[Rfam]
RNA: Small nucleolar RNA SNORD81
RNA sequence: UGGAACGAAUGAUGAUAACCUUAGCUUGAACUCUCUCACUGAACAGAGAUGAAAAUCUAAGGUCUGAGUUGUUCCA
Numbered sequence: 001u002g003g004a005a006c007g008a009a010u011g012a013u014g015a016u017a018a019c020c021u022u023a024g025c026u027u028g029a030a031c032u033c034u035c036u037c038a039c040u041g042a043a044c045a046g047a048g049a050u051g052a053a054a055a056u057c058u059a060a061g062g063u064c065u066g067a068g069u070u071g072u073u074c075c076a
Base pairs, nucleotide, nucleotide: 001076002075003074004073005072006071007070